[Rfam]
RNA sequence: AGUGAAGAUAGAGGUGCAAAUUUAAUCAGUACGUAUCAGGAAGGGUAUGAGCCCUUAUGAAUGAUGCGGAAAGGGAAAUUUGCCGAAGUGAACAUUACCUCAUAGUAAUGAUUGCUGGUUCUGCGUUGAAUAAACGUAGGAUUGUCAAGAUGUAGAUUCUUGGAGAGCUAUCUCACGG
Numbered sequence: 001a002g003u004g005a006a007g008a009u010a011g012a013g014g015u016g017c018a019a020a021u022u023u024a025a026u027c028a029g030u031a032c033g034u035a036u037c038a039g040g041a042a043g044g045g046u047a048u049g050a051g052c053c054c055u056u057a058u059g060a061a062u063g064a065u066g067c068g069g070a071a072a073g074g075g076a077a078a079u080u081u082g083c084c085g086a087a088g089u090g091a092a093c094a095u096u097a098c099c100u101c102a103u104a105g106u107a108a109u110g111a112u113u114g115c116u117g118g119u120u121c122u123g124c125g126u127u128g129a130a131u132a133a134a135c136g137u138a139g140g141a142u143u144g145u146c147a148a149g150a151u152g153u154a155g156a157u158u159c160u161u162g163g164a165g166a167g168c169u170a171u172c173u174c175a176c177g178g
Base pairs, nucleotide, nucleotide: 006173007172008171009170010169011168016083017082018081019080020079021078022077023076032068033067034066035065036064037063038062087116088115089114090113091112093110094109095108096107097106098105117143118142119141120140121139122138123137124136125135126134127133145163146162147161148160149159150158
RNA: Lysine riboswitch aptamer